[Rfam]
RNA sequence: GAUAUGCGAUGAAGCGGGAGGUGGCCGUCUUUUAAGACGGGGAAUUUCCGCCGAGUAUGUCCGAUUUUAAACCGGGCGACUU
Numbered sequence: 001g002a003u004a005u006g007c008g009a010u011g012a013a014g015c016g017g018g019a020g021g022u023g024g025c026c027g028u029c030u031u032u033u034a035a036g037a038c039g040g041g042g043a044a045u046u047u048c049c050g051c052c053g054a055g056u057a058u059g060u061c062c063g064a065u066u067u068u069a070a071a072c073c074g075g076g077c078g079a080c081u082u
Stems, first nucleotide, its partner, number of pairs: 014051003018048004025040005059080003065076003